raiA RNA: a 175-nucleotide RNA sequence. The family's consensus secondary structure is taken from published work. It is one of the family's seed sequences. The family's RNA type in Rfam is riboswitch.
RNA sequence: UGCGAGUGUGCUGUGGUUGAAAGUCGAUGCUAGCCGCGGGCAAAACGACCCACGUAAGGCGUUUAACGACGCUGAGCAUGGCGCGGUUUAGAUGUAAGUCCUGCGUUGGAUUGAUCAAAGUGGUCAUCCCCGGCGUAGGCGGGUGUGGGGUCAAAGACCAGGUCAGGCACUCGCA
Dot-bracket structure: (((((((((.((((((((........((([.(((((((.]........((......((...(.....)...)).....[)))))))))...........((((((((((....................))))))))))....)))......]..)))))...))))))))))))